[Rfam]
RNA sequence: AUGAACAGCGCGAGAGAGCAUCCGGCUGCACAGCGUGCAGACCGGGUCGCCGAAGGGCACCCCACACCGACAACCGGGUCGGGUGGGCAAUCUCUCAGGCACAGGGAUCGCACUGGGACA
Dot-bracket structure: .....(((.((((......((((((................)))))).(((((.(((...(((((.................)))))....))))).))).......)))).))).....
A member of the RNA family "Glycine riboswitch aptamer" from an Anaerolineae bacterium, 120 nucleotides long. NCBI's taxonomy places the organism under Bacteria, Bacillati, Chloroflexota, Anaerolineae. A search with the family's covariance model found it, with a score of 47 bits.